[Rfam]
RNA sequence: CAAGUCAGCGCGACCUGCUGACGUGGAAGGAAAUCGCUCCCUCAAGGACGUGAUUUCCUUCCAUGCCAACAGGUCGCGUUGACGUGG
Numbered sequence: 001c002a003a004g005u006c007a008g009c010g011c012g013a014c015c016u017g018c019u020g021a022c023g024u025g026g027a028a029g030g031a032a033a034u035c036g037c038u039c040c041c042u043c044a045a046g047g048a049c050g051u052g053a054u055u056u057c058c059u060u061c062c063a064u065g066c067c068a069a070c071a072g073g074u075c076g077c078g079u080u081g082a083c084g085u086g087g
Base pairs, nucleotide, nucleotide: 001086002085004083005082006081007080008079009078010077011076012075013074014073015072016071017070019068020067023064024063025062026061027060028059029058030057031056032055033054034053035052036051037050040047041046
RNA: MIR7486 microRNA precursor family
Organism: Gossypium laxum